The record is a 265-nucleotide part of an RNA from Idiomarina loihiensis, which matches "Bacterial large subunit ribosomal RNA" in Rfam.
Its family is annotated with ribosome and structural constituent of ribosome in the Gene Ontology.

RNA sequence: UGAGAGUUGAGAGGAGCUGCUCCUAGUACGAGAGGACCGGAGUGGACGAACCUCUGGUGUUCGGGUUGUCACGCCAGUGGCAUUGCCCGGUAGCUACGUUCGGAAUCGAUAACCGCUGAAAGCAUCUAAGCGGGAAGCGAGCCUCAAGAUAAGCUGUCACUAGCACUUAGAGUGCUCUGAAGGGUUGUUGGAGACUACAACGUUGAUAGGCGGGGUGUGGAAGCGUAGUAAUGCGUUGAGCUAACCCGUACUAAUUGCCCGUGAG
Numbered sequence: 001u002g003a004g005a006g007u008u009g010a011g012a013g014g015a016g017c018u019g020c021u022c023c024u025a026g027u028a029c030g031a032g033a034g035g036a037c038c039g040g041a042g043u044g045g046a047c048g049a050a051c052c053u054c055u056g057g058u059g060u061u062c063g064g065g066u067u068g069u070c071a072c073g074c075c076a077g078u079g080g081c082a083u084u085g086c087c088c089g090g091u092a093g094c095u096a097c098g099u100u101c102g103g104a105a106u107c108g109a110u111a112a113c114c115g116c117u118g119a120a121a122g123c124a125u126c127u128a129a130g131c132g133g134g135a136a137g138c139g140a141g142c143c144u145c146a147a148g149a150u151a152a153g154c155u156g157u158c159a160c161u162a163g164c165a166c167u168u169a170g171a172g173u174g175c176u177c178u179g180a181a182g183g184g185u186u187g188u189u190g191g192a193g194a195c196u197a198c199a200a201c202g203u204u205g206a207u208a209g210g211c212g213g214g215g216u217g218u219g220g221a222a223g224c225g226u227a228g229u230a231a232u233g234c235g236u237u238g239a240g241c242u243a244a245c246c247c248g249u250a251c252u253a254a255u256u257g258c259c260c261g262u263g264a265g
Stems, first nucleotide, its partner, number of pairs: 001159003005155004011145004017045007047102005055096003062089005067082006106140003113133005162176005179262001182260004186202005207253003210249005217241001220237001223236005
Lineage of the source: Bacteria > Alteromonadales > Idiomarinaceae > Idiomarina > Idiomarina loihiensis.